[Rfam]
RNA sequence: AAGACAUUUAUGUUGUAUGGAGAUAAACAAGGAGCGGAGGAACCAAAUUCGGGGCGUAUCUCUGGCAAAGUUUAAAGCAAAAGUGUGAAGAAUCAACUUCAUCCCACAAAGCUUGAAUGAUCUAGAGAAGGACAUCUCUCAGUUCUAGUCCGUCAGCUAACUUCGUAGGCAUUGGGAGGAGAUUGA
Numbered sequence: 001a002a003g004a005c006a007u008u009u010a011u012g013u014u015g016u017a018u019g020g021a022g023a024u025a026a027a028c029a030a031g032g033a034g035c036g037g038a039g040g041a042a043c044c045a046a047a048u049u050c051g052g053g054g055c056g057u058a059u060c061u062c063u064g065g066c067a068a069a070g071u072u073u074a075a076a077g078c079a080a081a082a083g084u085g086u087g088a089a090g091a092a093u094c095a096a097c098u099u100c101a102u103c104c105c106a107c108a109a110a111g112c113u114u115g116a117a118u119g120a121u122c123u124a125g126a127g128a129a130g131g132a133c134a135u136c137u138c139u140c141a142g143u144u145c146u147a148g149u150c151c152g153u154c155a156g157c158u159a160a161c162u163u164c165g166u167a168g169g170c171a172u173u174g175g176g177a178g179g180a181g182a183u184u185g186a
Stems, first nucleotide, its partner, number of pairs: 005031001034166006044051001052151003060127006130145004